[Rfam]
RNA sequence: UCCGUCGACUCUGGAGAGUGCUGGCAUCGACCAGCCACCGAAGGGGCAGGAGGCGCAUCAUGCCUCCAAUCUCUCAGGUAUCAGGACAGAGGGGCUGAG
Numbered sequence: 001u002c003c004g005u006c007g008a009c010u011c012u013g014g015a016g017a018g019u020g021c022u023g024g025c026a027u028c029g030a031c032c033a034g035c036c037a038c039c040g041a042a043g044g045g046g047c048a049g050g051a052g053g054c055g056c057a058u059c060a061u062g063c064c065u066c067c068a069a070u071c072u073c074u075c076a077g078g079u080a081u082c083a084g085g086a087c088a089g090a091g092g093g094g095c096u097g098a099g
Stems, first nucleotide, its partner, number of pairs: 006094001009091005020035004037079003040075002044073003050066005
Glycine riboswitch aptamer: a 99-nucleotide RNA from Abyssibacter profundi. The match comes from Rfam's covariance-model search (61 bits).